Annotation
SmY spliceosomal RNA: an 80-nucleotide RNA sequence from Ancylostoma ceylanicum. It scores 40 bits against the family's covariance model.
RNA sequence: GAACUCUUGAAGCUCAAUGCAGGGCCUUCACUAAGACCCGGAUGUGGAAUUUUUGGGAACCCCUACGGGUUUAGGGGUUA
Numbered sequence: 001g002a003a004c005u006c007u008u009g010a011a012g013c014u015c016a017a018u019g020c021a022g023g024g025c026c027u028u029c030a031c032u033a034a035g036a037c038c039c040g041g042a043u044g045u046g047g048a049a050u051u052u053u054u055g056g057g058a059a060c061c062c063c064u065a066c067g068g069g070u071u072u073a074g075g076g077g078u079u080a
Stems, first nucleotide, its partner, number of pairs: 022039003026035003058079008